[Rfam]
RNA: Small nucleolar RNA SNORD72
RNA sequence: GUCUUGUCUAUGAUGCCUUUAAACUCAAAUGUCUGAACAAAUGAUUUCCUAUGAUUCAAAUUUCUGACUGAGACAAGAC
Numbered sequence: 001g002u003c004u005u006g007u008c009u010a011u012g013a014u015g016c017c018u019u020u021a022a023a024c025u026c027a028a029a030u031g032u033c034u035g036a037a038c039a040a041a042u043g044a045u046u047u048c049c050u051a052u053g054a055u056u057c058a059a060a061u062u063u064c065u066g067a068c069u070g071a072g073a074c075a076a077g078a079c
Base pairs, nucleotide, nucleotide: 002078003077004076005075006074007073008072